mir-184 microRNA precursor family: an 85-nucleotide sequence from Stegodyphus mimosarum.

RNA sequence: GUCUCCUCGCAUCCUUAUCAUUCUCGUGUCCAGGCUGAGCAUGGAUCGAGAUCUGGACGGAGAACUGAUAAGGGCACGUGGAAGA
Numbered sequence: 001g002u003c004u005c006c007u008c009g010c011a012u013c014c015u016u017a018u019c020a021u022u023c024u025c026g027u028g029u030c031c032a033g034g035c036u037g038a039g040c041a042u043g044g045a046u047c048g049a050g051a052u053c054u055g056g057a058c059g060g061a062g063a064a065c066u067g068a069u070a071a072g073g074g075c076a077c078g079u080g081g082a083a084g085a
Base pairs, nucleotide, nucleotide: 012074013073014072015071016070017069018068019067020066021064022063023062024061025060029056030055
Description: Its family is annotated with gene silencing by miRNA and RISC complex in the Gene Ontology. It scores 65 bits against the family's covariance model. Pairs were carried over by alignment from the consensus structure, which was predicted with PFOLD.